[Rfam]
Notes: The record is a 151-nucleotide RNA from Mumia flava, which matches "Burkholderia sRNA 37" in Rfam.
RNA sequence: ACCGGACUGCGCUUCCGGUCCAUCGCCACCCCGCCCGCGUUCGAUCCCUGCGGGCACUCCGUCCCCCCGGCGAUGGGCUCCGUGACUGGGCGAGCAGACACGGCGCGCAGGCCGAUUUUCCGCCCCGGGCUUCGCGUCCGGGGCGUUUUUG
Numbered sequence: 001a002c003c004g005g006a007c008u009g010c011g012c013u014u015c016c017g018g019u020c021c022a023u024c025g026c027c028a029c030c031c032c033g034c035c036c037g038c039g040u041u042c043g044a045u046c047c048c049u050g051c052g053g054g055c056a057c058u059c060c061g062u063c064c065c066c067c068c069g070g071c072g073a074u075g076g077g078c079u080c081c082g083u084g085a086c087u088g089g090g091c092g093a094g095c096a097g098a099c100a101c102g103g104c105g106c107g108c109a110g111g112c113c114g115a116u117u118u119u120c121c122g123c124c125c126c127g128g129g130c131u132u133c134g135c136g137u138c139c140g141g142g143g144c145g146u147u148u149u150u151g
Base pairs, nucleotide, nucleotide: 003114004113005112007110008109009108010107011106012105017079018078019077020076021075022074023073024072025071026070027069033055034054035053036052039051040050043047056062057061080103081102082101083100084099086097087096088095122144123143124142125141126140127139128138129137130136
On this family, see Sass et al., Sci Rep 2017: "Identification of small RNAs abundant in Burkholderia cenocepacia biofilms reveal putative regulators with a potential role in carbon and iron metabolism". It is one of the family's seed sequences. Identified by RNA-seq, RACE and Northern blot. Strongly expressed in biofilm. Gene Ontology term of the family: bacterial biofilm matrix.